Shown here is an 83-nucleotide RNA sequence from Geosporobacter ferrireducens, a member of the family "Clostridiales-2 RNA". NCBI's taxonomy places the organism under Bacteria, Clostridia, Peptostreptococcales, Thermotaleaceae, Geosporobacter.
RNA sequence: AAAAAAUAGGGGUUGUAGGGGAUGAAAUCCCCUGCUGUACUAAGGAGGGUGCUCAGACUGCGAUAGCAGUCGUCGAAGGGAAC
Numbered sequence: 001a002a003a004a005a006a007u008a009g010g011g012g013u014u015g016u017a018g019g020g021g022a023u024g025a026a027a028u029c030c031c032c033u034g035c036u037g038u039a040c041u042a043a044g045g046a047g048g049g050u051g052c053u054c055a056g057a058c059u060g061c062g063a064u065a066g067c068a069g070u071c072g073u074c075g076a077a078g079g080g081a082a083c
Stems, first nucleotide, its partner, number of pairs: 015035008056071005